[Rfam]
RNA: Small nucleolar RNA R160
RNA sequence: AGCAAAAUGAUGAGUUAUUUUAUAUCUGAAUUUAAAUGUGGAAUUUAUUUUCCUUCAAAGUUCUCUGAUUGCU
Numbered sequence: 001a002g003c004a005a006a007a008u009g010a011u012g013a014g015u016u017a018u019u020u021u022a023u024a025u026c027u028g029a030a031u032u033u034a035a036a037u038g039u040g041g042a043a044u045u046u047a048u049u050u051u052c053c054u055u056c057a058a059a060g061u062u063c064u065c066u067g068a069u070u071g072c073u
Stems, first nucleotide, its partner, number of pairs: 001073005